[Rfam]
RNA sequence: CCACCAAGAUGAAACUAUGAACUCUCUCUUACUGAGUGAACAGUGGAGAUAUUUGUACUGCUGAGUGGC
Numbered sequence: 001c002c003a004c005c006a007a008g009a010u011g012a013a014a015c016u017a018u019g020a021a022c023u024c025u026c027u028c029u030u031a032c033u034g035a036g037u038g039a040a041c042a043g044u045g046g047a048g049a050u051a052u053u054u055g056u057a058c059u060g061c062u063g064a065g066u067g068g069c
Base pairs, nucleotide, nucleotide: 001068002067003066004065
Shown here is a 69-nucleotide RNA sequence from Hymenochirus boettgeri, a member of the family "Small nucleolar RNA SNORD26".
Taxonomically the source falls in Hymenochirus (Eukaryota, Opisthokonta, Deuterostomia, Pipoidea).
For this family Rfam cites "A mammalian gene with introns instead of exons generating stable RNA products" (Tycowski et al., Nature, 1996).
The family has 17 seed sequences and 451 matches in Rfam 15.1.
The family is grouped with related families in Rfam's "SNORD26 clan".
Rfam classes the family as a C/D-box small nucleolar RNA.